[Rfam]
RNA sequence: UGCAGGGUGCGCGACUGGCGAUAGGAGCCUGUUUUCAAAGGGAAACAGGGCACUCUGACGUGGAGCGUGGUGACCUGAGUCACUGCCGAACCACUGGGAAGCGCACAGCCUGACCCGUUGUCUUUCAGACCGGGCCAGGUUUUCAGCCGUUCGCCUGGGCAGCCCUU
Numbered sequence: 001u002g003c004a005g006g007g008u009g010c011g012c013g014a015c016u017g018g019c020g021a022u023a024g025g026a027g028c029c030u031g032u033u034u035u036c037a038a039a040g041g042g043a044a045a046c047a048g049g050g051c052a053c054u055c056u057g058a059c060g061u062g063g064a065g066c067g068u069g070g071u072g073a074c075c076u077g078a079g080u081c082a083c084u085g086c087c088g089a090a091c092c093a094c095u096g097g098g099a100a101g102c103g104c105a106c107a108g109c110c111u112g113a114c115c116c117g118u119u120g121u122c123u124u125u126c127a128g129a130c131c132g133g134g135c136c137a138g139g140u141u142u143u144c145a146g147c148c149g150u151u152c153g154c155c156u157g158g159g160c161a162g163c164c165c166u167u
Stems, first nucleotide, its partner, number of pairs: 007106006015098002017155005060094004144162001146160003
RNA: ZMP/ZTP riboswitch aptamer (pfl RNA motif)
Organism: Limnohabitans sp. 63ED37-2